small nucleolar RNA snoR127: a 173-nucleotide RNA sequence from Arabis nemorensis.
The family's consensus secondary structure was predicted with RNAalifold.
Lineage of the source: Eukaryota > Streptophyta > Gunneridae > Brassicales > Arabis.
The match comes from Rfam's covariance-model search (97 bits).
A reference for the family is Chen and Wu (2009), "Mining small RNA sequencing data: a new approach to identify small nucleolar RNAs in Arabidopsis", Nucleic Acids Res.
The family has 3 seed sequences and 273 matches in Rfam 15.1.

RNA sequence: CUGGAGUGAUGAUUCUUAGCCAAAUCAGAUAUGUGCUCCAAGAGGCACUUUGUUGGGUUACUUGUGUUGAGUCGCCAUAAUGAUCUCCUCCGUAACCCUGAUUGCAAAUAUUGUGCCUCUUGUUGUAGUGUGUCUUGGAUGAUAUCACAGAGAUGGGUAUAAGUCUGACCAGA
Numbered sequence: 001c002u003g004g005a006g007u008g009a010u011g012a013u014u015c016u017u018a019g020c021c022a023a024a025u026c027a028g029a030u031a032u033g034u035g036c037u038c039c040a041a042g043a044g045g046c047a048c049u050u051u052g053u054u055g056g057g058u059u060a061c062u063u064g065u066g067u068u069g070a071g072u073c074g075c076c077a078u079a080a081u082g083a084u085c086u087c088c089u090c091c092g093u094a095a096c097c098c099u100g101a102u103u104g105c106a107a108a109u110a111u112u113g114u115g116c117c118u119c120u121u122g123u124u125g126u127a128g129u130g131u132g133u134c135u136u137g138g139a140u141g142a143u144a145u146c147a148c149a150g151a152g153a154u155g156g157g158u159a160u161a162a163g164u165c166u167g168a169c170c171a172g173a
Stems, first nucleotide, its partner, number of pairs: 001172004